[Rfam]
L19-Flavobacteria ribosomal protein leader: a 28-nucleotide sequence. Rfam's curators put it in the seed alignment. The base pairs follow the family's consensus structure, which is taken from published work. It is annotated as a cis-regulatory leader.
RNA sequence: CAACCUCUGAUCAGAGAGAUGUAUGUUG
Numbered sequence: 001c002a003a004c005c006u007c008u009g010a011u012c013a014g015a016g017a018g019a020u021g022u023a024u025g026u027u028g
Base pairs, nucleotide, nucleotide: 001028002027003026004025008023010020011019012018